U5 spliceosomal RNA: a 119-nucleotide RNA sequence from Prunus dulcis. By type it is a spliceosomal small nuclear RNA. U5 RNA is a component of both types of known spliceosome. The precise function of this molecule is unknown, though it is known that the 5' loop is required for splice site selection and p220 binding, and that both the 3' stem-loop and the Sm site are important for Sm protein binding and cap methylation. Lineage of the source: Eukaryota > Viridiplantae > Tracheophyta > Amygdaleae > Prunus. Pairs were carried over by alignment from the consensus structure, which is taken from published work.

RNA sequence: AGCCACGCGGUGGACACAGAGCGAACUAUUCUUUCGCCUUUUACUAAAGAAUACCGUGUGCCCGCAGCAAUUAGUGGCAUACGCCAGUUUUUUGAGGAGUUUCUCUGAACAGAGGAGCU
Numbered sequence: 001a002g003c004c005a006c007g008c009g010g011u012g013g014a015c016a017c018a019g020a021g022c023g024a025a026c027u028a029u030u031c032u033u034u035c036g037c038c039u040u041u042u043a044c045u046a047a048a049g050a051a052u053a054c055c056g057u058g059u060g061c062c063c064g065c066a067g068c069a070a071u072u073a074g075u076g077g078c079a080u081a082c083g084c085c086a087g088u089u090u091u092u093u094g095a096g097g098a099g100u101u102u103c104u105c106u107g108a109a110c111a112g113a114g115g116a117g118c119u
Base pairs, nucleotide, nucleotide: 003077004076005075006074008067010065011064012063013062015060016059017058018057027053028052029051030050031049032048033047034046095119099118100117101116102115103114104113